Source information: Purine riboswitch aptamer: a 102-nucleotide RNA from Bacillus sp. 165.
[Rfam]
RNA sequence: AUAAUAAUAAAAGCACAACCUCGUAUAAUCAUGGGAAUAUGGCCCAGAAGUUUCUACCCGAUAACCUUAAAUUAUUGGACUAUGAGGGAAAGUGACUCGGUU
Numbered sequence: 001a002u003a004a005u006a007a008u009a010a011a012a013g014c015a016c017a018a019c020c021u022c023g024u025a026u027a028a029u030c031a032u033g034g035g036a037a038u039a040u041g042g043c044c045c046a047g048a049a050g051u052u053u054c055u056a057c058c059c060g061a062u063a064a065c066c067u068u069a070a071a072u073u074a075u076u077g078g079a080c081u082a083u084g085a086g087g088g089a090a091a092g093u094g095a096c097u098c099g100g101u102u
Stems, first nucleotide, its partner, number of pairs: 019087007029049001032046004058078007
Dot-bracket structure: ..................(((((((...(..((((.......))))..)........(((((((.......)))))))..)))))))...............

NCBI's taxonomy places the organism under Bacteria, Bacillati, Bacillota, Bacilli, Bacillus.